This 147-nucleotide sequence belongs to the Rfam family "RT-14 RNA".
RNA sequence: CUCUAAUAUCAUUUUUGAUGUAUAAGGUUUAAGGAUCUUUGCCAAUAAAGUAUUAGAUAUUAAAGAAGUCUAUUCCUUCCUAUAAAUUGGUAAAAAUGAAUAAAAUUUUAGUGUAAAUCUGGUAGAGAACGAAAGAAACAUUAAAAU
Numbered sequence: 001c002u003c004u005a006a007u008a009u010c011a012u013u014u015u016u017g018a019u020g021u022a023u024a025a026g027g028u029u030u031a032a033g034g035a036u037c038u039u040u041g042c043c044a045a046u047a048a049a050g051u052a053u054u055a056g057a058u059a060u061u062a063a064a065g066a067a068g069u070c071u072a073u074u075c076c077u078u079c080c081u082a083u084a085a086a087u088u089g090g091u092a093a094a095a096a097u098g099a100a101u102a103a104a105a106u107u108u109u110a111g112u113g114u115a116a117a118u119c120u121g122g123u124a125g126a127g128a129a130c131g132a133a134a135g136a137a138a139c140a141u142u143a144a145a146a147u
Base pairs, nucleotide, nucleotide: 003056004055005054006053007052008051009050013048014047020042021041022040025038026037027036028035029034079090080089105147106146107145108144109143110142111141112140113139118136119135125130
The family's RNA type in Rfam is small RNA.